Shown here is a 191-nucleotide RNA sequence from Anaeromicrobium sediminis, a member of the family "Lysine riboswitch aptamer". The match comes from Rfam's covariance-model search (100 bits). The source organism's lineage runs through Bacteria, Clostridia, Peptostreptococcales, Thermotaleaceae and Anaeromicrobium.
RNA sequence: UUGUGUGUUAUGAGGUUGCAAUGAUUAUAAUUACCACAGGUGAGAGAUAGAGACUCUAGGAUCUUAUGGGAAAGGAAUUAUUGCCGAAAUAUGUAAAUUGUCUCUAAAUUUAUAUGUUGGGCAUAUACUUAAUAGGUAUAUGACUGUUAUUGAUAAAUUCACCACUUUAUCAAUAAGGAGCUGAUGCACAA
Numbered sequence: 001u002u003g004u005g006u007g008u009u010a011u012g013a014g015g016u017u018g019c020a021a022u023g024a025u026u027a028u029a030a031u032u033a034c035c036a037c038a039g040g041u042g043a044g045a046g047a048u049a050g051a052g053a054c055u056c057u058a059g060g061a062u063c064u065u066a067u068g069g070g071a072a073a074g075g076a077a078u079u080a081u082u083g084c085c086g087a088a089a090u091a092u093g094u095a096a097a098u099u100g101u102c103u104c105u106a107a108a109u110u111u112a113u114a115u116g117u118u119g120g121g122c123a124u125a126u127a128c129u130u131a132a133u134a135g136g137u138a139u140a141u142g143a144c145u146g147u148u149a150u151u152g153a154u155a156a157a158u159u160c161a162c163c164a165c166u167u168u169a170u171c172a173a174u175a176a177g178g179a180g181c182u183g184a185u186g187c188a189c190a191a
Stems, first nucleotide, its partner, number of pairs: 006186005012181001018084009034069003038065003088118012119145002122142008147176011